[Rfam]
RNA: Plastid-psbA-2 3UTR RNA
Organism: Mikania micrantha
RNA sequence: AAAAAGGAGCAAUAGCUUCCCUCUUGUUUUACUAAGAGAGCGCUAUUGCUUCUUUUUUAUU
Numbered sequence: 001a002a003a004a005a006g007g008a009g010c011a012a013u014a015g016c017u018u019c020c021c022u023c024u025u026g027u028u029u030u031a032c033u034a035a036g037a038g039a040g041c042g043c044u045a046u047u048g049c050u051u052c053u054u055u056u057u058u059a060u061u
Stems, first nucleotide, its partner, number of pairs: 001057016017040003022037005